[Rfam]
RNA: Alphaproteobacteria transfer-messenger RNA
Organism: Candidatus Phycorickettsia trachydisci
RNA sequence: UGCUUUGGAAUUUUUCUGAAUCUCUAGUAUAAUAUAAUUGCUAGCAUUAUUGCUAGAUAUGGCAAUAAACUUUAUUCGAAAUAGAAGUUGCGGACUCGGGGGCGGAACCCGGCACCUCCACCAUUGACGGGGGUGAGUUAGCUUCGACGUGGCUUAAUAAAGGUCUAAUUUUGCUCGGGAUGAUUCUCCGUAUGAUGGAUCAUAAAAGUAAAUGCAAACUCAUUUGCAAAAAAUCGUCAAUCUUAUGAUUACGGUUAUGCUGCUGCGGCUUAGUUCCGCACGCUAGCAGGCGGUUUGGGGUUUUCCGGGCAACAGAAAAGCCCCUU
Numbered sequence: 001u002g003c004u005u006u007g008g009a010a011u012u013u014u015u016c017u018g019a020a021u022c023u024c025u026a027g028u029a030u031a032a033u034a035u036a037a038u039u040g041c042u043a044g045c046a047u048u049a050u051u052g053c054u055a056g057a058u059a060u061g062g063c064a065a066u067a068a069a070c071u072u073u074a075u076u077c078g079a080a081a082u083a084g085a086a087g088u089u090g091c092g093g094a095c096u097c098g099g100g101g102g103c104g105g106a107a108c109c110c111g112g113c114a115c116c117u118c119c120a121c122c123a124u125u126g127a128c129g130g131g132g133g134u135g136a137g138u139u140a141g142c143u144u145c146g147a148c149g150u151g152g153c154u155u156a157a158u159a160a161a162g163g164u165c166u167a168a169u170u171u172u173g174c175u176c177g178g179g180a181u182g183a184u185u186c187u188c189c190g191u192a193u194g195a196u197g198g199a200u201c202a203u204a205a206a207a208g209u210a211a212a213u214g215c216a217a218a219c220u221c222a223u224u225u226g227c228a229a230a231a232a233a234u235c236g237u238c239a240a241u242c243u244u245a246u247g248a249u250u251a252c253g254g255u256u257a258u259g260c261u262g263c264u265g266c267g268g269c270u271u272a273g274u275u276c277c278g279c280a281c282g283c284u285a286g287c288a289g290g291c292g293g294u295u296u297g298g299g300g301u302u303u304u305c306c307g308g309g310c311a312a313c314a315g316a317a318a319a320g321c322c323c324c325u326u
Base pairs, nucleotide, nucleotide: 041056042055043054044053045052046051061175062174063173064172065171072168073167074166077163086154087153088152090150091149092148096112097111098110099109100108113135114134115133116132117131118130119129176190177189178188179187181202182201183200185198186197291307292306293305297324298323299322300321301320302319